[Rfam]
RNA sequence: UCGGUUCCGGUUCACGUCCCCUCGUCGAGGGAGGCGACCCGGCGCC
Numbered sequence: 001u002c003g004g005u006u007c008c009g010g011u012u013c014a015c016g017u018c019c020c021c022u023c024g025u026c027g028a029g030g031g032a033g034g035c036g037a038c039c040c041g042g043c044g045c046c
Base pairs, nucleotide, nucleotide: 003046004045005044007042008041009040010039015036016035017034018033019031020030021029022028
RNA: L31-Actinobacteria ribosomal protein leader
Organism: Nocardioides agariphilus